[Rfam]
RNA sequence: GUGCUUGUGGGAUGAACAGGUCCCAACAUUUGUUCCAUUUUUUUUACUCUCAGCUGUUGGCCAUAAUUGUUUAGCUGAUCAUUAAUAAUGGGAAAUGG
Numbered sequence: 001g002u003g004c005u006u007g008u009g010g011g012a013u014g015a016a017c018a019g020g021u022c023c024c025a026a027c028a029u030u031u032g033u034u035c036c037a038u039u040u041u042u043u044u045u046a047c048u049c050u051c052a053g054c055u056g057u058u059g060g061c062c063a064u065a066a067u068u069g070u071u072u073a074g075c076u077g078a079u080c081a082u083u084a085a086u087a088a089u090g091g092g093a094a095a096u097g098g
Stems, first nucleotide, its partner, number of pairs: 034092006050078007
A member of the RNA family "Small nucleolar RNA snoR99" from Zea mays, 98 nucleotides long. Rfam classes the family as an H/ACA-box small nucleolar RNA. Taxonomically the source falls in Zea (Eukaryota, Petrosaviidae, Poaceae, Andropogonodae). For this family Rfam cites "Experimental RNomics: identification of 140 candidates for small non-messenger RNAs in the plant Arabidopsis thaliana" (Marker et al., Curr Biol, 2002). The family's consensus secondary structure was predicted with WAR.